[Rfam]
RNA sequence: GUGUUAUGGUCAUUGUUGACUGCUCAUACGACCCCUGCAAUUGCAUUGCAGCUUAUACGGGGGUUGUAUAACGGUCAACAGAGACCGUUGACAU
Numbered sequence: 001g002u003g004u005u006a007u008g009g010u011c012a013u014u015g016u017u018g019a020c021u022g023c024u025c026a027u028a029c030g031a032c033c034c035c036u037g038c039a040a041u042u043g044c045a046u047u048g049c050a051g052c053u054u055a056u057a058c059g060g061g062g063g064u065u066g067u068a069u070a071a072c073g074g075u076c077a078a079c080a081g082a083g084a085c086c087g088u089u090g091a092c093a094u
Stems, first nucleotide, its partner, number of pairs: 001094006008086004013081010024070001026069012039056001043052001
MIR2587 microRNA precursor family: a 94-nucleotide RNA sequence from Medicago truncatula.
Pairs were carried over by alignment from the consensus structure, which was predicted with RNAalifold.
A search with the family's covariance model found it, with a score of 88 bits.
For this family Rfam cites "Genome-wide Medicago truncatula small RNA analysis revealed novel microRNAs and isoforms differentially regulated in roots and nodules" (Lelandais-Briere et al., Plant Cell, 2009).